The record is a 77-nucleotide RNA from Euhalothece natronophila, which matches "Cyano-1 RNA" in Rfam. A search with the family's covariance model found it, with a score of 48 bits.
RNA sequence: UGGUGAGUGAGGAGUAAUCGAACGGGAGAGCUUCAGGGGUCGAAACAUGGCAAGACUCCCUGAAGUCUUUUCAUUUU
Numbered sequence: 001u002g003g004u005g006a007g008u009g010a011g012g013a014g015u016a017a018u019c020g021a022a023c024g025g026g027a028g029a030g031c032u033u034c035a036g037g038g039g040u041c042g043a044a045a046c047a048u049g050g051c052a053a054g055a056c057u058c059c060c061u062g063a064a065g066u067c068u069u070u071u072c073a074u075u076u077u
Base pairs, nucleotide, nucleotide: 015073024072025071026070027069028068031065032064036060037059038058039056040055041054
Dot-bracket structure: ..............(........(((((..((...((((((............))).)))...))..))))))....